c-di-AMP riboswitch aptamer (ydaO/yuaA leader): a 126-nucleotide RNA sequence from Nostocales cyanobacterium HT-58-2. NCBI's taxonomy places the organism under Bacteria, Bacillati, Cyanobacteriota, Cyanophyceae, Nostocales.
[Rfam]
RNA sequence: AUUAAAAAACUUCCAAGCUGGAUGAGAAGCGGAGGAACCAAUGUAUUGGGGCGAAUCUCGAAUCGAGAGAGACACCUUCCAGUCUUAGCCCGUCAGCUAACUCCGUCGGCAUUGGAAGGAGUACCU
Numbered sequence: 001a002u003u004a005a006a007a008a009a010c011u012u013c014c015a016a017g018c019u020g021g022a023u024g025a026g027a028a029g030c031g032g033a034g035g036a037a038c039c040a041a042u043g044u045a046u047u048g049g050g051g052c053g054a055a056u057c058u059c060g061a062a063u064c065g066a067g068a069g070a071g072a073c074a075c076c077u078u079c080c081a082g083u084c085u086u087a088g089c090c091c092g093u094c095a096g097c098u099a100a101c102u103c104c105g106u107c108g109g110c111a112u113u114g115g116a117a118g119g120a121g122u123a124c125c126u
Base pairs, nucleotide, nucleotide: 011111013109014108019027029106030105031104032103033102034101039048040047049091050090051089057067058066059065060064070085071084072083073082